[Rfam]
RNA sequence: CCCGGCAUUCAAAAGUGACUGUGGGCUGCCCGUGCCUGGUGGUCGUUAGUGCAGGGAGAAGACGUGGGAAGCCUUUUCCCAAGUUUGGGAGGUCACUCCUGUCUUUUCCAGACAGGGCUGUUUGCCUACA
Numbered sequence: 001c002c003c004g005g006c007a008u009u010c011a012a013a014a015g016u017g018a019c020u021g022u023g024g025g026c027u028g029c030c031c032g033u034g035c036c037u038g039g040u041g042g043u044c045g046u047u048a049g050u051g052c053a054g055g056g057a058g059a060a061g062a063c064g065u066g067g068g069a070a071g072c073c074u075u076u077u078c079c080c081a082a083g084u085u086u087g088g089g090a091g092g093u094c095a096c097u098c099c100u101g102u103c104u105u106u107u108c109c110a111g112a113c114a115g116g117g118c119u120g121u122u123u124g125c126c127u128a129c130a
Base pairs, nucleotide, nucleotide: 001056002055003054005052006051007050008049009048015043016042018040019039020038021037024036025035026034064127066126067125069123070122071121072120083113084112085111086110087109088107089106090105091104092103
RNA: Small nucleolar RNA SNORA71